[Rfam]
RNA sequence: AGGCGAUGUCUCCUUGCCGUUAUCAAUGGAGGCACUCGGUCAUGCUGUGGGUGUAGAAACCUUAGACGCAAGUCGUCGCUGGUGUGGUGUGAGGAGGGGUUAAAUGCCCA
Numbered sequence: 001a002g003g004c005g006a007u008g009u010c011u012c013c014u015u016g017c018c019g020u021u022a023u024c025a026a027u028g029g030a031g032g033c034a035c036u037c038g039g040u041c042a043u044g045c046u047g048u049g050g051g052u053g054u055a056g057a058a059a060c061c062u063u064a065g066a067c068g069c070a071a072g073u074c075g076u077c078g079c080u081g082g083u084g085u086g087g088u089g090u091g092a093g094g095a096g097g098g099g100u101u102a103a104a105u106g107c108c109c110a
Stems, first nucleotide, its partner, number of pairs: 002018003007034007035093004039088008049062004065077004097109004

epsC RNA: a 110-nucleotide sequence from Metabacillus indicus. The match comes from Rfam's covariance-model search (104 bits). NCBI's taxonomy places the organism under Bacteria, Bacillota, Bacilli, Bacillaceae, Metabacillus.